Small nucleolar RNA SNORD125: a 104-nucleotide RNA sequence from Columba livia. Lineage of the source: Eukaryota > Eumetazoa > Sauria > Archelosauria > Columba. The family's RNA type in Rfam is C/D-box small nucleolar RNA. The family has 16 seed sequences and 526 matches in Rfam 15.1. The match comes from Rfam's covariance-model search (64 bits).

RNA sequence: ACUGGGAACAACCUCACAUGAUGACCCACUCUCUCUGAUGGCUGUGGUGGUGAUGAGCAUCAACCCAAAGCCUCUAAGAAGUUGACUGAAGAGGCUGUUCCCCG
Numbered sequence: 001a002c003u004g005g006g007a008a009c010a011a012c013c014u015c016a017c018a019u020g021a022u023g024a025c026c027c028a029c030u031c032u033c034u035c036u037g038a039u040g041g042c043u044g045u046g047g048u049g050g051u052g053a054u055g056a057g058c059a060u061c062a063a064c065c066c067a068a069a070g071c072c073u074c075u076a077a078g079a080a081g082u083u084g085a086c087u088g089a090a091g092a093g094g095c096u097g098u099u100c101c102c103c104g
Stems, first nucleotide, its partner, number of pairs: 007099004012094004